[Rfam]
RNA sequence: UCUUUGAUUUAUUUGCUGCAUAGUCUUUCAGUGAUAUGAGCAGUUGCAUGAAUGGGAUAAAAUAAUGCUGGGCUAUUGCAAAGGGAAGUAACUCCUUUAUCUCUGCUGCAUGGUGUUGAUACUG
Numbered sequence: 001u002c003u004u005u006g007a008u009u010u011a012u013u014u015g016c017u018g019c020a021u022a023g024u025c026u027u028u029c030a031g032u033g034a035u036a037u038g039a040g041c042a043g044u045u046g047c048a049u050g051a052a053u054g055g056g057a058u059a060a061a062a063u064a065a066u067g068c069u070g071g072g073c074u075a076u077u078g079c080a081a082a083g084g085g086a087a088g089u090a091a092c093u094c095c096u097u098u099a100u101c102u103c104u105g106c107u108g109c110a111u112g113g114u115g116u117u118g119a120u121a122c123u124g
Stems, first nucleotide, its partner, number of pairs: 003057003007053002015044005021036002024034002068118001070116001072114004077110004085103002088100004